[Rfam]
RNA: U12 minor spliceosomal RNA
Organism: Glycine max
RNA sequence: CUGCCUUAAACUAAUGAGUAAGGAAAACAAAGCAAGCAGUGGGAGCUGCUUGCAGCACUCAUUGUGAUGUGCAAGUAGUUUUUGGAGGGGUUAUAGGCUGGCCGUGAGUUGACGCUGCUUACUUUGCAGAACUCUCAUGGGCGGGCCUCCC
Numbered sequence: 001c002u003g004c005c006u007u008a009a010a011c012u013a014a015u016g017a018g019u020a021a022g023g024a025a026a027a028c029a030a031a032g033c034a035a036g037c038a039g040u041g042g043g044a045g046c047u048g049c050u051u052g053c054a055g056c057a058c059u060c061a062u063u064g065u066g067a068u069g070u071g072c073a074a075g076u077a078g079u080u081u082u083u084g085g086a087g088g089g090g091u092u093a094u095a096g097g098c099u100g101g102c103c104g105u106g107a108g109u110u111g112a113c114g115c116u117g118c119u120u121a122c123u124u125u126g127c128a129g130a131a132c133u134c135u136c137a138u139g140g141g142c143g144g145g146c147c148u149c150c151c
Stems, first nucleotide, its partner, number of pairs: 004023005032053008055072004089151002095148005101142001103139002106136003115129004